Annotation
Rfam assigns this 72-nucleotide sequence from Octodon degus to the family "Small nucleolar RNA SNORD82". A reference for the family is Galardi et al. (2002), "Purified box C/D snoRNPs are able to reproduce site-specific 2'-O-methylation of target RNA in vitro", Mol Cell Biol. NCBI's taxonomy places the organism under Eukaryota, Deuterostomia, Chordata, Euteleostomi, Octodon. The family's RNA type in Rfam is C/D-box small nucleolar RNA. From the family's description: snoRNA U82 or Z25 is found in both humans and mice. The family has 27 seed sequences and 649 matches in Rfam 15.1.
[Rfam]
RNA sequence: UGUAUUAAAAUGAUAAAUGAAAAAGAGACUCAAUAUUGAAACCUAAUAUUACCUCAUGAUAUGCUGAUGUAC
Dot-bracket structure: .((((..(...........................................................)))))